[Rfam]
RNA sequence: CCGUCCGAAGUUUCCCUCAGGAUAGCUGGCAUUCAAUUUUCACAGUUAUAUCCGGUAAAGCGAAUGUUUAGAGGCAUUGGGCGUAAAAUACGCUCAACCUAUUGACAAACUUUAAAUGGGUAUGAAGUUCAUUUUUCUACUUCAUUGAGAAUGAACAGCGAAUGUGAGUGCCAAGUGGGCCAUUUUUGGUAAGCAGAACUGGCGCUGUUGGAUGCACAAAACGUCAAGAUAAAGAGCCAGAUGGUCUCGCUCAUCAGAUACCAUAAAAGGUGUUGGUCGAUAUAGACAGCAGGACGGUGGCCAUGGAAGUCGGAAUCCGUUAAGGAGUGUGUAACAACUCACCUGCCGAAUCGACUAGUCCUAAAAAUGGAUGGCGCUCGAGCGAGCCUCUUAUACUUGACUGUUACGAUACAAUAAGCCAUUCUAACGGACAUCAUGUCGUAACAAGUAGGACGGUUGAUAUGGUUGCGUCGAAGGCUAACACGUGAGUGUGGCUUGAGCAGUCAUAUGUACAGAU
Numbered sequence: 001c002c003g004u005c006c007g008a009a010g011u012u013u014c015c016c017u018c019a020g021g022a023u024a025g026c027u028g029g030c031a032u033u034c035a036a037u038u039u040u041c042a043c044a045g046u047u048a049u050a051u052c053c054g055g056u057a058a059a060g061c062g063a064a065u066g067u068u069u070a071g072a073g074g075c076a077u078u079g080g081g082c083g084u085a086a087a088a089u090a091c092g093c094u095c096a097a098c099c100u101a102u103u104g105a106c107a108a109a110c111u112u113u114a115a116a117u118g119g120g121u122a123u124g125a126a127g128u129u130c131a132u133u134u135u136u137c138u139a140c141u142u143c144a145u146u147g148a149g150a151a152u153g154a155a156c157a158g159c160g161a162a163u164g165u166g167a168g169u170g171c172c173a174a175g176u177g178g179g180c181c182a183u184u185u186u187u188g189g190u191a192a193g194c195a196g197a198a199c200u201g202g203c204g205c206u207g208u209u210g211g212a213u214g215c216a217c218a219a220a221a222c223g224u225c226a227a228g229a230u231a232a233a234g235a236g237c238c239a240g241a242u243g244g245u246c247u248c249g250c251u252c253a254u255c256a257g258a259u260a261c262c263a264u265a266a267a268a269g270g271u272g273u274u275g276g277u278c279g280a281u282a283u284a285g286a287c288a289g290c291a292g293g294a295c296g297g298u299g300g301c302c303a304u305g306g307a308a309g310u311c312g313g314a315a316u317c318c319g320u321u322a323a324g325g326a327g328u329g330u331g332u333a334a335c336a337a338c339u340c341a342c343c344u345g346c347c348g349a350a351u352c353g354a355c356u357a358g359u360c361c362u363a364a365a366a367a368u369g370g371a372u373g374g375c376g377c378u379c380g381a382g383c384g385a386g387c388c389u390c391u392u393a394u395a396c397u398u399g400a401c402u403g404u405u406a407c408g409a410u411a412c413a414a415u416a417a418g419c420c421a422u423u424c425u426a427a428c429g430g431a432c433a434u435c436a437u438g439u440c441g442u443a444a445c446a447a448g449u450a451g452g453a454c455g456g457u458u459g460a461u462a463u464g465g466u467u468g469c470g471u472c473g474a475a476g477g478c479u480a481a482c483a484c485g486u487g488a489g490u491g492u493g494g495c496u497u498g499a500g501c502a503g504u505c506a507u508a509u510g511u512a513c514a515g516a517u
Stems, first nucleotide, its partner, number of pairs: 001456006011024001013022003027173007046125008058113001059111002065107004070102001072100003077097006084090001127156009179203004184198005208219003223401005233391003244387001248384003268362003272359010289346005295319003301313002320324001325340001329338002402446009458512001460509010476496002482491003
RNA: Eukaryotic large subunit ribosomal RNA, nucleotides 1213 to 1729